[Rfam]
RNA sequence: UUAUAUUUGUUGGGCAAUGUUUGACCUCUGAAUUGUGUCAGGACCGGAAGGUAGCAGCACUAAGGUUGUUCAGACAUGUGCCUUUUUUUGUUAGUUUUU
Numbered sequence: 001u002u003a004u005a006u007u008u009g010u011u012g013g014g015c016a017a018u019g020u021u022u023g024a025c026c027u028c029u030g031a032a033u034u035g036u037g038u039c040a041g042g043a044c045c046g047g048a049a050g051g052u053a054g055c056a057g058c059a060c061u062a063a064g065g066u067u068g069u070u071c072a073g074a075c076a077u078g079u080g081c082c083u084u085u086u087u088u089u090g091u092u093a094g095u096u097u098u099u
Stems, first nucleotide, its partner, number of pairs: 004093002007090001009086001012083003015078001017077006024069002028065002035060004043052003

This 99-nucleotide RNA from Lactobacillus sp. LL6 belongs to the Rfam family "Bacterial small signal recognition particle RNA". It is annotated as a non-coding RNA gene.